[Rfam]
RNA: mir-2985 microRNA precursor family
RNA sequence: UCCAUUAAGGUGGGUGGAAUAGUAUAACAAUAUAAAAUGUGUUGUUAUAGUAUUCCACCUUCCCUGAUGUC
Numbered sequence: 001u002c003c004a005u006u007a008a009g010g011u012g013g014g015u016g017g018a019a020u021a022g023u024a025u026a027a028c029a030a031u032a033u034a035a036a037a038u039g040u041g042u043u044g045u046u047a048u049a050g051u052a053u054u055c056c057a058c059c060u061u062c063c064c065u066g067a068u069g070u071c
Stems, first nucleotide, its partner, number of pairs: 003069005009063002012060006019053003023049011
Dot-bracket structure: ..(((((.((.((((((.(((.(((((((((((.....))))))))))).))).)))))).)).)))))..